[Rfam]
RNA sequence: CUAGCACUUUCACAGGUCCUCCCCCAGACAGUUGGGCCAGGAUUUGGUAGCUCGUGCUGAAAGAAAACCCUUGAUUGCAUCCUUGCCCUGGGACUGUGCCAGUGGCAGCUGUCACUCAAUGGGACAGGG
Numbered sequence: 001c002u003a004g005c006a007c008u009u010u011c012a013c014a015g016g017u018c019c020u021c022c023c024c025c026a027g028a029c030a031g032u033u034g035g036g037c038c039a040g041g042a043u044u045u046g047g048u049a050g051c052u053c054g055u056g057c058u059g060a061a062a063g064a065a066a067a068c069c070c071u072u073g074a075u076u077g078c079a080u081c082c083u084u085g086c087c088c089u090g091g092g093a094c095u096g097u098g099c100c101a102g103u104g105g106c107a108g109c110u111g112u113c114a115c116u117c118a119a120u121g122g123g124a125c126a127g128g129g
Base pairs, nucleotide, nucleotide: 003058004057005056006055007054013046014045015044017042018041019040020039022036023035024034068123069122070121071119072118073117074116076114077113079112080111083108084107085106086105087104088102089101090100091099
Rfam assigns this 129-nucleotide RNA from Equus asinus to the family "Small nucleolar RNA SNORA30/SNORA37 family". Rfam classes the family as an H/ACA-box small nucleolar RNA. NCBI's taxonomy places the organism under Eukaryota, Teleostomi, Boreoeutheria, Perissodactyla, Equus. For this family Rfam cites "RNomics: an experimental approach that identifies 201 candidates for novel, small, non-messenger RNAs in mouse" (Huttenhofer et al., EMBO J, 2001). A search with the family's covariance model found it, with a score of 135 bits. The members of this family belong to the H/ACA class of snoRNAs that guide the sites of modification of uridines to pseudouridines. This family includes human ACA30 (SNORA30), ACA37 (SNORA37) and the mouse homolog MBI-26.